[Rfam]
RNA sequence: AUAUAGUGGAAGCCAGAGACCACUAAAAAAACGGGGCGGAACCCGAAAAGCCAUACGAGUAGGGGUUAA
Numbered sequence: 001a002u003a004u005a006g007u008g009g010a011a012g013c014c015a016g017a018g019a020c021c022a023c024u025a026a027a028a029a030a031a032c033g034g035g036g037c038g039g040a041a042c043c044c045g046a047a048a049a050g051c052c053a054u055a056c057g058a059g060u061a062g063g064g065g066u067u068a069a
Stems, first nucleotide, its partner, number of pairs: 006023004035052003042063002
The record is a 69-nucleotide RNA from Litchfieldella anticariensis, which matches "DUF805 RNA" in Rfam. It is annotated as a cis-regulatory element. The family's consensus secondary structure is taken from published work. Clan: DUF805 clan.